Rfam assigns this 84-nucleotide RNA from Streptomyces longwoodensis to the family "Streptomyces RNA 6106". Identified by deep sequencing of transcriptome at the end of exponential growth phase. Appears smaller on northern blot than sequencing transcript. This indicates processing step. Streptomyces specific. A reference for the family is Vockenhuber et al. (2011), "Deep sequencing-based identification of small non-coding RNAs in Streptomyces coelicolor", RNA Biol.
RNA sequence: ACGCCGUCCCGAGCGGCGUUCCUGGCCUCGCAGGGCCAUUGCGGCGGGGGUGGUGCCGUGUCGGCGCAGCACCACCCCCGCUCA
Numbered sequence: 001a002c003g004c005c006g007u008c009c010c011g012a013g014c015g016g017c018g019u020u021c022c023u024g025g026c027c028u029c030g031c032a033g034g035g036c037c038a039u040u041g042c043g044g045c046g047g048g049g050g051u052g053g054u055g056c057c058g059u060g061u062c063g064g065c066g067c068a069g070c071a072c073c074a075c076c077c078c079c080g081c082u083c084a
Stems, first nucleotide, its partner, number of pairs: 001019007021041001025037001026035003044081013058067003